[Rfam]
RNA: Bacterial large subunit ribosomal RNA, nucleotides 833 to 1266
Organism: Aliterella atlantica
RNA sequence: CUCCCCGAAAUGUGUUGAGGCGCAGCGGUGACGAUUAUAGUUUGGGGGUAAAGCACUGUUUCGGUGCGGGCGGCGAAAGCUGUACCAAAUCGAGACAAACUCAGAAUACCAAACGCACACGUCACCAGACAGACGGUGGGGGAUAAGCUUCAUCGUCAAGAGGGAAACAGCCCAGACCACCAGCUAAGGUCCCCAAAUUGUCACUAAGUGAUAAAGGAGGUGGGAGUGCAAAGACAACCAGGAGGUUUGCCUAGAAGCAGCCAUCCUUGAAAGAGUGCGUAAUAGCUCACUGGUCAAGCGCUCCUGCGCCGAAAAUGAACGGGGCUAAGUGACGUACCGAAGCUGUGGGAUAAUUUGAUUAUCGGUAGGGGAGCGUUCUGUAGUAGGAAGAAGCACUAGCGGCAAGCAGGUGUGGACGAAGCAGAAGUGAGAAU
Numbered sequence: 001c002u003c004c005c006c007g008a009a010a011u012g013u014g015u016u017g018a019g020g021c022g023c024a025g026c027g028g029u030g031a032c033g034a035u036u037a038u039a040g041u042u043u044g045g046g047g048g049u050a051a052a053g054c055a056c057u058g059u060u061u062c063g064g065u066g067c068g069g070g071c072g073g074c075g076a077a078a079g080c081u082g083u084a085c086c087a088a089a090u091c092g093a094g095a096c097a098a099a100c101u102c103a104g105a106a107u108a109c110c111a112a113a114c115g116c117a118c119a120c121g122u123c124a125c126c127a128g129a130c131a132g133a134c135g136g137u138g139g140g141g142g143a144u145a146a147g148c149u150u151c152a153u154c155g156u157c158a159a160g161a162g163g164g165a166a167a168c169a170g171c172c173c174a175g176a177c178c179a180c181c182a183g184c185u186a187a188g189g190u191c192c193c194c195a196a197a198u199u200g201u202c203a204c205u206a207a208g209u210g211a212u213a214a215a216g217g218a219g220g221u222g223g224g225a226g227u228g229c230a231a232a233g234a235c236a237a238c239c240a241g242g243a244g245g246u247u248u249g250c251c252u253a254g255a256a257g258c259a260g261c262c263a264u265c266c267u268u269g270a271a272a273g274a275g276u277g278c279g280u281a282a283u284a285g286c287u288c289a290c291u292g293g294u295c296a297a298g299c300g301c302u303c304c305u306g307c308g309c310c311g312a313a314a315a316u317g318a319a320c321g322g323g324g325c326u327a328a329g330u331g332a333c334g335u336a337c338c339g340a341a342g343c344u345g346u347g348g349g350a351u352a353a354u355u356u357g358a359u360u361a362u363c364g365g366u367a368g369g370g371g372a373g374c375g376u377u378c379u380g381u382a383g384u385a386g387g388a389a390g391a392a393g394c395a396c397u398a399g400c401g402g403c404a405a406g407c408a409g410g411u412g413u414g415g416a417c418g419a420a421g422c423a424g425a426a427g428u429g430a431g432a433a434u
Stems, first nucleotide, its partner, number of pairs: 001373006011024005026128001027126007036119001040114006052101002057097003061093004068086002070083005132157010162173003177348004182344003188338003197335001199334006216310002220307010237294005243267003249261002268272001273288001277286002349363006374429001376426006384419001386417001393413005399407002